[Rfam]
RNA sequence: ACUCAACAUUUACAACCUAAUAAAGGGUAAGUGGAGUUGUUAAAGCGAGCCGUCCUAGAACGGAUACUUGACCAACUCAGUAGCCCUAAACCUGUUUUUAGGAGUUU
Numbered sequence: 001a002c003u004c005a006a007c008a009u010u011u012a013c014a015a016c017c018u019a020a021u022a023a024a025g026g027g028u029a030a031g032u033g034g035a036g037u038u039g040u041u042a043a044a045g046c047g048a049g050c051c052g053u054c055c056u057a058g059a060a061c062g063g064a065u066a067c068u069u070g071a072c073c074a075a076c077u078c079a080g081u082a083g084c085c086c087u088a089a090a091c092c093u094g095u096u097u098u099u100a101g102g103a104g105u106u107u
Stems, first nucleotide, its partner, number of pairs: 024087005034078005043069003050063004

Shown here is a 107-nucleotide sequence from Capnocytophaga cynodegmi, a member of the family "6S-Flavo RNA". The organism belongs to Capnocytophaga, within Bacteria. By type it is a small RNA.